[Rfam]
RNA sequence: CCCUGCACUUGGAAGUGAUCACGGGCUGCCUGUGGCCUGCACUUUGGUAGUGCAGGCAGAGGAAACGUGGUAGGGUUGUCCUGCAUUUGGAGGGUUCCCAUCCUCACCCUCCAGUUGCGGGAGCUUUCCCACA
Numbered sequence: 001c002c003c004u005g006c007a008c009u010u011g012g013a014a015g016u017g018a019u020c021a022c023g024g025g026c027u028g029c030c031u032g033u034g035g036c037c038u039g040c041a042c043u044u045u046g047g048u049a050g051u052g053c054a055g056g057c058a059g060a061g062g063a064a065a066c067g068u069g070g071u072a073g074g075g076u077u078g079u080c081c082u083g084c085a086u087u088u089g090g091a092g093g094g095u096u097c098c099c100a101u102c103c104u105c106a107c108c109c110u111c112c113a114g115u116u117g118c119g120g121g122a123g124c125u126u127u128c129c130c131a132c133a
Stems, first nucleotide, its partner, number of pairs: 002056008014045002017042001020039002023037002026034001067130001069129002072126003085116001087114008
This 133-nucleotide sequence from Balaenoptera musculus belongs to the Rfam family "Small nucleolar RNA SNORA71". NCBI's taxonomy places the organism under Eukaryota, Gnathostomata, Sarcopterygii, Dipnotetrapodomorpha, Balaenoptera. The family's consensus secondary structure was predicted with PFOLD. It scores 76 bits against the family's covariance model.